[Rfam]
RNA sequence: CCACCCAAGGAUCGCCCCCCGUCAGCGCGUUGCGCCCACGGGGGCCAAACUU
Numbered sequence: 001c002c003a004c005c006c007a008a009g010g011a012u013c014g015c016c017c018c019c020c021g022u023c024a025g026c027g028c029g030u031u032g033c034g035c036c037c038a039c040g041g042g043g044g045c046c047a048a049a050c051u052u
Stems, first nucleotide, its partner, number of pairs: 016044007025035004

The family of this 52-nucleotide RNA sequence from Pseudooctadecabacter jejudonensis is "ffh sRNA". The match comes from Rfam's covariance-model search (63 bits). Rfam classes the family as a small RNA. Taxonomically the source falls in Pseudooctadecabacter (Bacteria, Alphaproteobacteria, Rhodobacterales, Paracoccaceae).